Shown here is a 115-nucleotide RNA sequence, a member of the family "TPP riboswitch aptamer (THI element)".
The base pairs follow the family's consensus structure, which is taken from published work.
[Rfam]
RNA sequence: AGAAAGCACCGGGGGUGUCUGUGUCAGCUUCAAAUCGAUGACUGAUCAGGCUGAGAAAGUCCCUUUGAACCUGAACAGGAUAAUUCCUGCGUAGGGAGUGUGCAAUUUUCUUUUG
Numbered sequence: 001a002g003a004a005a006g007c008a009c010c011g012g013g014g015g016u017g018u019c020u021g022u023g024u025c026a027g028c029u030u031c032a033a034a035u036c037g038a039u040g041a042c043u044g045a046u047c048a049g050g051c052u053g054a055g056a057a058a059g060u061c062c063c064u065u066u067g068a069a070c071c072u073g074a075a076c077a078g079g080a081u082a083a084u085u086c087c088u089g090c091g092u093a094g095g096g097a098g099u100g101u102g103c104a105a106u107u108u109u110c111u112u113u114u115g
Stems, first nucleotide, its partner, number of pairs: 006103004011064004016058001017051005070095004076089004